Record summary
The family of this 170-nucleotide RNA sequence from Enhygromyxa salina is "Group II catalytic intron D1-D4-3". Rfam links the family to the GO term Group II intron splicing.
[Rfam]
RNA sequence: CCACAGGGGCCGGAGGGUCUGGAGGAAGCGUGAAACGAACCAGCGGGUCGACGUACAGAAAUCGGAUUUGAGGCGGGGUGUCCGGGCGAGCGUGCGCCACAGCGCGAGCUCAUCACGGUCAAGAAAGGGCAUCACGUAUAUCCGGCGGCGUGCUGGGAAGGUCAGUGCUC
Numbered sequence: 001c002c003a004c005a006g007g008g009g010c011c012g013g014a015g016g017g018u019c020u021g022g023a024g025g026a027a028g029c030g031u032g033a034a035a036c037g038a039a040c041c042a043g044c045g046g047g048u049c050g051a052c053g054u055a056c057a058g059a060a061a062u063c064g065g066a067u068u069u070g071a072g073g074c075g076g077g078g079u080g081u082c083c084g085g086g087c088g089a090g091c092g093u094g095c096g097c098c099a100c101a102g103c104g105c106g107a108g109c110u111c112a113u114c115a116c117g118g119u120c121a122a123g124a125a126a127g128g129g130c131a132u133c134a135c136g137u138a139u140a141u142c143c144g145g146c147g148g149c150g151u152g153c154u155g156g157g158a159a160g161g162u163c164a165g166u167g168c169u170c
Stems, first nucleotide, its partner, number of pairs: 001016002004013001006011001028170001030168003035162002040156006047149004062145006073137003077133007084111004090105004